[Rfam]
RNA: Group II catalytic intron D1-D4-1
Organism: Roseimaritima multifibrata
RNA sequence: CGACCGAGGUAACUUGGCUCGGGCUCGGCAGAAGUCAGCAGAGGCCGUAGUACCGGACUUUCGCAACCCAGCGAAACCGGGAAGGGC
Numbered sequence: 001c002g003a004c005c006g007a008g009g010u011a012a013c014u015u016g017g018c019u020c021g022g023g024c025u026c027g028g029c030a031g032a033a034g035u036c037a038g039c040a041g042a043g044g045c046c047g048u049a050g051u052a053c054c055g056g057a058c059u060u061u062c063g064c065a066a067c068c069c070a071g072c073g074a075a076a077c078c079g080g081g082a083a084g085g086g087c
Stems, first nucleotide, its partner, number of pairs: 002019001004017005035042002044087003053080003060074002